The family of this 106-nucleotide sequence from Cellulomonas sp. WB94 is "Actinobacteria sRNA Ms_IGR-7". The family's RNA type in Rfam is small RNA. The base pairs follow the family's consensus structure. The source organism's lineage runs through Bacteria, Bacillati, Actinomycetes, Cellulomonadaceae and Cellulomonas. The literature on the family includes a 2013 paper in RNA by Li et al., "Identification of small RNAs in Mycobacterium smegmatis using heterologous Hfq".
RNA sequence: GGAAGGUGCUCCUCGAACUGGUCUGAUCUGUCCCUCGCAAGACACAUCAUCCCAGGUCAGGAGCACUUUCCUCGUCUACGCCACGACCGCGCCGUGAAAUCUCCAG
Numbered sequence: 001g002g003a004a005g006g007u008g009c010u011c012c013u014c015g016a017a018c019u020g021g022u023c024u025g026a027u028c029u030g031u032c033c034c035u036c037g038c039a040a041g042a043c044a045c046a047u048c049a050u051c052c053c054a055g056g057u058c059a060g061g062a063g064c065a066c067u068u069u070c071c072u073c074g075u076c077u078a079c080g081c082c083a084c085g086a087c088c089g090c091g092c093c094g095u096g097a098a099a100u101c102u103c104c105a106g
Base pairs, nucleotide, nucleotide: 001071002070003069004068005067006066007065008064009063010062011061012060015058016057018055019054020053021052024049025048026047027046029044031042032041